[Rfam]
RNA: Ciliate telomerase RNA
RNA sequence: UUAUACCCGCAUUUUCAUUCAGAUCUUUAAUGGAGCUGUCAUUCAACCCCAAAAAUCUAGUGCAACUACUGCCUUAACUACUUAGGCAAAAUAAGUCGUAAAGCGGGACAAGGCAUCGACAUUUGAUACAAAUAUUGAUCAAUGGAUAUCUUAUUUUUUAU
Numbered sequence: 001u002u003a004u005a006c007c008c009g010c011a012u013u014u015u016c017a018u019u020c021a022g023a024u025c026u027u028u029a030a031u032g033g034a035g036c037u038g039u040c041a042u043u044c045a046a047c048c049c050c051a052a053a054a055a056u057c058u059a060g061u062g063c064a065a066c067u068a069c070u071g072c073c074u075u076a077a078c079u080a081c082u083u084a085g086g087c088a089a090a091a092u093a094a095g096u097c098g099u100a101a102a103g104c105g106g107g108a109c110a111a112g113g114c115a116u117c118g119a120c121a122u123u124u125g126a127u128a129c130a131a132a133u134a135u136u137g138a139u140c141a142a143u144g145g146a147u148a149u150c151u152u153a154u155u156u157u158u159u160a161u
Base pairs, nucleotide, nucleotide: 006107007106008105009104010103020038021037022036024034025033026032070088072086073085074084078098080096082094083093110152111151112150113149115147116146117145120144121143123142124141125140126139127138